[Rfam]
RNA sequence: AAUCCCUUUUAACUGUAGUCCAGUGAGGCUGUAAAGGGGAAGCUCGAUUUCACAUGGCCUUUAUAACCGGUGAAAUCUGUCAUUCCCUCUUUGCACCUUCUCGCAAAGAGGUUUUUUAU
Numbered sequence: 001a002a003u004c005c006c007u008u009u010u011a012a013c014u015g016u017a018g019u020c021c022a023g024u025g026a027g028g029c030u031g032u033a034a035a036g037g038g039g040a041a042g043c044u045c046g047a048u049u050u051c052a053c054a055u056g057g058c059c060u061u062u063a064u065a066a067c068c069g070g071u072g073a074a075a076u077c078u079g080u081c082a083u084u085c086c087c088u089c090u091u092u093g094c095a096c097c098u099u100c101u102c103g104c105a106a107a108g109a110g111g112u113u114u115u116u117u118a119u
Base pairs, nucleotide, nucleotide: 003039004038005037006036007035008034009033015032016031017030018029019028020027046077047076048075049074050073051072052071053070056067086111087110088109089108090107091106092105093104094103